A member of the RNA family "mir-46/mir-47/mir-281 microRNA precursor family" from Nasonia vitripennis, 86 nucleotides long. Rfam links the family to the GO terms miRNA-mediated post-transcriptional gene silencing and RISC complex. The source organism's lineage runs through Eukaryota, Metazoa, Protostomia, Arthropoda and Nasonia. The family's consensus secondary structure was predicted with RNAalifold.
[Rfam]
RNA sequence: AAGCGGACGCUAUAAAGAGAGCUAUCCAUCGACAGUAUGGUGAUAGAUGACACUGUCAUGGACUUGCUCUCUUUGUGGACGUCGCU
Numbered sequence: 001a002a003g004c005g006g007a008c009g010c011u012a013u014a015a016a017g018a019g020a021g022c023u024a025u026c027c028a029u030c031g032a033c034a035g036u037a038u039g040g041u042g043a044u045a046g047a048u049g050a051c052a053c054u055g056u057c058a059u060g061g062a063c064u065u066g067c068u069c070u071c072u073u074u075g076u077g078g079a080c081g082u083c084g085c086u
Stems, first nucleotide, its partner, number of pairs: 014074005020068003025062004031057003035053002